[Rfam]
RNA sequence: CUUUUAUCAAGAGUGGUGUAGAGACAGGCUCGACGAUACCACGACAACCUGCCGGUUUACCGGUAAGGUGCCAAAUCCUGACAGAUGAGAG
Numbered sequence: 001c002u003u004u005u006a007u008c009a010a011g012a013g014u015g016g017u018g019u020a021g022a023g024a025c026a027g028g029c030u031c032g033a034c035g036a037u038a039c040c041a042c043g044a045c046a047a048c049c050u051g052c053c054g055g056u057u058u059a060c061c062g063g064u065a066a067g068g069u070g071c072c073a074a075a076u077c078c079u080g081a082c083a084g085a086u087g088a089g090a091g
Base pairs, nucleotide, nucleotide: 001091002090003089004088005087006086007085008084013042014041015040016039017038021031022030023029025080026079027078028077043072045070046069048068049067052062076083
The family of this 91-nucleotide RNA sequence from Clostridium sp. CAG:448 is "SAM riboswitch aptamer (S box leader)". Pairs were carried over by alignment from the consensus structure, which is taken from published work.